[Rfam]
RNA: mir-30 microRNA precursor family
RNA sequence: GCAGGCAGUGUAAACACCCUACACUCUCAGCUGCUGACUGACAGAGGAAGCUGGGAGAGGGUGCUUACCUUGCCUGG
Number, nucleotide and partner (000 for none) at each position: 001g000002c076003a075004g074005g073006c072007a000008g070009u000010g068011u067012a066013a065014a000015c063016a062017c000018c061019c060020u059021a000022c000023a000024c057025u056026c055027u054028c053029a052030g051031c050032u049033g000034c000035u000036g000037a000038c000039u000040g000041a000042c000043a000044g000045a000046g000047g000048a000049a032050g031051c030052u029053g028054g027055g026056a025057g024058a000059g020060g019061g018062u016063g015064c000065u013066u012067a011068c010069c000070u008071u000072g006073c005074c004075u003076g002077g000